Rfam assigns this 70-nucleotide RNA to the family "potC RNA". The sequence is in the family's curated seed alignment. It is annotated as a cis-regulatory element.
[Rfam]
RNA sequence: UAGACGGUGCCCACGUCACUCUCCUCUAGGAUCUUUACCCUUUCCUAGAAACUGUCGUGGGCAUUAAAAU
Numbered sequence: 001u002a003g004a005c006g007g008u009g010c011c012c013a014c015g016u017c018a019c020u021c022u023c024c025u026c027u028a029g030g031a032u033c034u035u036u037a038c039c040c041u042u043u044c045c046u047a048g049a050a051a052c053u054g055u056c057g058u059g060g061g062c063a064u065u066a067a068a069a070u
Stems, first nucleotide, its partner, number of pairs: 006065010017054002027047005